[Rfam]
RNA sequence: GCGAGACGGAGAGGCCAGUGGCCGAGACCGACCGAUAAACUGUUCUCGGACGGUGCCGGGCGCAGCCCCCGAGCCCGUCCGCCCAUGAUCAGCCAGCAGCCGCUGCAACCCCAGGGAG
Numbered sequence: 001g002c003g004a005g006a007c008g009g010a011g012a013g014g015c016c017a018g019u020g021g022c023c024g025a026g027a028c029c030g031a032c033c034g035a036u037a038a039a040c041u042g043u044u045c046u047c048g049g050a051c052g053g054u055g056c057c058g059g060g061c062g063c064a065g066c067c068c069c070c071g072a073g074c075c076c077g078u079c080c081g082c083c084c085a086u087g088a089u090c091a092g093c094c095a096g097c098a099g100c101c102g103c104u105g106c107a108a109c110c111c112c113a114g115g116g117a118g
Stems, first nucleotide, its partner, number of pairs: 048080006056073001057071004094105004
Dot-bracket structure: ...............................................((((((..(((((.......)))).).)))))).............((((....)))).............
Shown here is a 118-nucleotide RNA sequence from Streptomyces sp. CdTB01, a member of the family "Streptomyces-metK RNA". A search with the family's covariance model found it, with a score of 121 bits. By type it is a small RNA. The base pairs follow the family's consensus structure, which is taken from published work. NCBI's taxonomy places the organism under Bacteria, Actinomycetota, Actinomycetes, Streptomycetaceae, Streptomyces.